[Rfam]
RNA: Small nucleolar RNA Z122
RNA sequence: UUUGGGAAGUGAUGAAAUCUCAUUUUUGUAUCAGGAGAUUACUCAGAUCUGUGUUGAACAAAUUUGCACGUCAGUCUGAUCCCAGA
Numbered sequence: 001u002u003u004g005g006g007a008a009g010u011g012a013u014g015a016a017a018u019c020u021c022a023u024u025u026u027u028g029u030a031u032c033a034g035g036a037g038a039u040u041a042c043u044c045a046g047a048u049c050u051g052u053g054u055u056g057a058a059c060a061a062a063u064u065u066g067c068a069c070g071u072c073a074g075u076c077u078g079a080u081c082c083c084a085g086a
Stems, first nucleotide, its partner, number of pairs: 001086007